[Rfam]
The record is an 81-nucleotide RNA sequence from Acetivibrio ethanolgignens, which matches "c-di-GMP-I riboswitch aptamer" in Rfam. Gene Ontology term of the family: cyclic-di-GMP binding. GEMM was predicted in a large-scale screen for bacterial structured RNA regulatory elements.
RNA sequence: UUGGUAUAAAGGCAAAGCAUCUGAAAGGAUGUGACGCAAAACUAUAGGGCCUAAGUUAUUAUAUGGUAGCCAGUUGCACUU
Numbered sequence: 001u002u003g004g005u006a007u008a009a010a011g012g013c014a015a016a017g018c019a020u021c022u023g024a025a026a027g028g029a030u031g032u033g034a035c036g037c038a039a040a041a042c043u044a045u046a047g048g049g050c051c052u053a054a055g056u057u058a059u060u061a062u063a064u065g066g067u068a069g070c071c072a073g074u075u076g077c078a079c080u081u
Stems, first nucleotide, its partner, number of pairs: 012037002017032006040075004047071002049067003056061001